[Rfam]
RNA sequence: AGAUGGCUUUGGAAUGACACGAUCACUCCCGCUGAGCCAGCAGCCAGAGAGCCAUCGGGGAUGUCGUGUCUUUCCAAAGCUCUUU
Numbered sequence: 001a002g003a004u005g006g007c008u009u010u011g012g013a014a015u016g017a018c019a020c021g022a023u024c025a026c027u028c029c030c031g032c033u034g035a036g037c038c039a040g041c042a043g044c045c046a047g048a049g050a051g052c053c054a055u056c057g058g059g060g061a062u063g064u065c066g067u068g069u070c071u072u073u074c075c076a077a078a079g080c081u082c083u084u085u
Stems, first nucleotide, its partner, number of pairs: 006080002009077004016070008027060005033054002036052002